[Rfam]
RNA sequence: CUAUGGCAGGAAAUGUCAUGGCGGAAGGAG
Numbered sequence: 001c002u003a004u005g006g007c008a009g010g011a012a013a014u015g016u017c018a019u020g021g022c023g024g025a026a027g028g029a030g
Stems, first nucleotide, its partner, number of pairs: 001021008
Rfam assigns this 30-nucleotide sequence to the family "L31-Firmicutes ribosomal protein leader". By type it is a cis-regulatory leader. On this family, see Eckert and Weinberg, BMC Microbiol 2020: "Discovery of 20 novel ribosomal leader candidates in bacteria and archaea". The family is grouped with related families in Rfam's "Ribosomal Protein L31 Leader clan".